Background
This 96-nucleotide sequence belongs to the Rfam family "S10-Clostridia ribosomal protein leader". It is one of the family's seed sequences.
RNA sequence: UGAUAGCGUAGAAGCGUGAGGUUGCUGCCGCAAGGCAGGUUUUCCGUGGAGCGAAUGUCAAGGCCGGUAUUAACCGGCAGAUGAACCUGGCGACAA
Dot-bracket structure: .............(((.((((...(((((....)))))..)))))))........((((...((((........)))).............)))).
Record summary:
Rfam classes the family as a cis-regulatory leader. The family's consensus secondary structure is taken from published work.